[Rfam]
RNA sequence: GUAAGGAGCUUGCGUCCAGGCUCUCGAUACUUCGGAAGAGCUCCCGGAGUCAGACUUCUCCAGGCGGGAGAAGGAAUCGUUACGGACGCAUCAUGACGUCCACAAUGACGCAAGCG
Number, nucleotide and partner (000 for none) at each position: 001g000002u000003a000004a000005g000006g000007a000008g115009c114010u113011u112012g111013c110014g109015u108016c107017c000018a000019g000020g000021c000022u000023c000024u000025c079026g078027a077028u076029a050030c049031u048032u047033c046034g045035g044036a000037a000038g000039a000040g000041c000042u000043c000044c035045c034046g033047g032048a031049g030050u029051c000052a000053g000054a000055c073056u072057u071058c070059u069060c068061c067062a000063g000064g000065c000066g000067g061068g060069a059070g058071a057072a056073g055074g000075a000076a028077u027078c026079g025080u000081u000082a000083c000084g101085g100086a099087c098088g097089c000090a000091u000092c000093a000094u000095g000096a000097c088098g087099u086100c085101c084102a000103c000104a000105a000106u000107g016108a015109c014110g013111c012112a011113a010114g009115c008116g000